[Rfam]
RNA: Glycine riboswitch aptamer
RNA sequence: AACAGCCGCGCGGGAGAGAUCGCCAGUUCGUAUGGCGGCGCCGAAGGGGCAAAUCCUCCCCGGAACCUCUCAGGCAAAAGGACCGCGCUGGCAGG
Numbered sequence: 001a002a003c004a005g006c007c008g009c010g011c012g013g014g015a016g017a018g019a020u021c022g023c024c025a026g027u028u029c030g031u032a033u034g035g036c037g038g039c040g041c042c043g044a045a046g047g048g049g050c051a052a053a054u055c056c057u058c059c060c061c062g063g064a065a066c067c068u069c070u071c072a073g074g075c076a077a078a079a080g081g082a083c084c085g086c087g088c089u090g091g092c093a094g095g
Stems, first nucleotide, its partner, number of pairs: 006090001008088006020038004040075003043071002047069003054062001